[Rfam]
A member of the RNA family "eL15-Euryarchaeota ribosomal protein leader" from Natronococcus amylolyticus, 70 nucleotides long.

RNA sequence: CCUGUUCGGUAUCGACGCCCACAGGUCGGGAUGUGAUCCGCGGGGCCGGCCCGCUGGGUUGAACCAGGAA
Number, nucleotide and partner (000 for none) at each position: 001c025002c024003u023004g022005u021006u000007c000008g000009g000010u000011a000012u000013c000014g000015a000016c000017g000018c000019c000020c000021a005022c004023a003024g002025g001026u000027c000028g065029g064030g000031a000032u000033g000034u000035g060036a059037u058038c057039c056040g000041c000042g000043g000044g000045g000046c000047c000048g000049g000050c000051c000052c000053g000054c000055u000056g039057g038058g037059u036060u035061g000062a000063a000064c029065c028066a000067g000068g000069a000070a000